RNA sequence: AACAUCAUUUUUAUAUCGCAGAUGCACUACCAAUUUAACUGAUCUCACUUCUUAUGAGUUUCAGGAGAUGAACUCGAUUUUGUUUCAAGGUUCCUCUUGGUUUGGUACUGUUAAGCGUAGAUCAAAUAAGAACGUUGCUGGGCGCCUGGUGCUGACCAUAUUGUAUGGGUUGAGGCAUUGGGAAUCAGCUGUAUCUAUAUCU
Numbered sequence: 001a002a003c004a005u006c007a008u009u010u011u012u013a014u015a016u017c018g019c020a021g022a023u024g025c026a027c028u029a030c031c032a033a034u035u036u037a038a039c040u041g042a043u044c045u046c047a048c049u050u051c052u053u054a055u056g057a058g059u060u061u062c063a064g065g066a067g068a069u070g071a072a073c074u075c076g077a078u079u080u081u082g083u084u085u086c087a088a089g090g091u092u093c094c095u096c097u098u099g100g101u102u103u104g105g106u107a108c109u110g111u112u113a114a115g116c117g118u119a120g121a122u123c124a125a126a127u128a129a130g131a132a133c134g135u136u137g138c139u140g141g142g143c144g145c146c147u148g149g150u151g152c153u154g155a156c157c158a159u160a161u162u163g164u165a166u167g168g169g170u171u172g173a174g175g176c177a178u179u180g181g182g183a184a185u186c187a188g189c190u191g192u193a194u195c196u197a198u199a200u201c202u
Stems, first nucleotide, its partner, number of pairs: 017117003025110002028107006039064004049058003065096003070093002073090002130195002132192003145182002149178005156168005

Rfam assigns this 202-nucleotide RNA sequence from Vanderwaltozyma polyspora to the family "Small nucleolar RNA snR32".
The organism belongs to Vanderwaltozyma polyspora, within Eukaryota.
It is one of the family's seed sequences.
A reference for the family is Balakin et al. (1993), "SnR31, snR32, and snR33: three novel, non-essential snRNAs from Saccharomyces cerevisiae", Nucleic Acids Res.
The family's RNA type in Rfam is H/ACA-box small nucleolar RNA.
The base pairs follow the family's consensus structure, which was predicted with WAR.